The record is a 146-nucleotide RNA from Castor canadensis, which matches "Small Cajal body specific RNA 3" in Rfam. On this family, see Darzacq et al., EMBO J 2002: "Cajal body-specific small nuclear RNAs: a novel class of 2'-O-methylation and pseudouridylation guide RNAs".
RNA sequence: GUUGGACACCUGGACUUCACCAUGUGAGUGUGGACAAAAUGAGAAAAUACCUUUUUUCUACAGAAGGCAGCAAUCCUACAUAAACAUGGGGGUCUCUGUCUGACUUAGGACAGCUGGCUAAGUUAGCUCCUUCCCCUCCAAACUCU
Numbered sequence: 001g002u003u004g005g006a007c008a009c010c011u012g013g014a015c016u017u018c019a020c021c022a023u024g025u026g027a028g029u030g031u032g033g034a035c036a037a038a039a040u041g042a043g044a045a046a047a048u049a050c051c052u053u054u055u056u057u058c059u060a061c062a063g064a065a066g067g068c069a070g071c072a073a074u075c076c077u078a079c080a081u082a083a084a085c086a087u088g089g090g091g092g093u094c095u096c097u098g099u100c101u102g103a104c105u106u107a108g109g110a111c112a113g114c115u116g117g118c119u120a121a122g123u124u125a126g127c128u129c130c131u132u133c134c135c136c137u138c139c140a141a142a143c144u145c146u
Base pairs, nucleotide, nucleotide: 004076005075006074010070011069012068029062030061031060032059033058034057041053042052043051088139089138090137091136092135098128100126102124103123104122105121106120107119108118
Dot-bracket structure: ...(((...(((................((((((......(((.......)))...)))))).....)))...)))...........(((((.....(.(.(((((((.........))))))).).)......))))).......
Clan: SCARNA3 clan. About the family: scaRNAs are a specific class of small nuclear RNAs which localise to the Cajal bodies and guide the modification of RNA polymerase II transcribed spliceosomal RNAs U1, U2, U4, U5 and U12.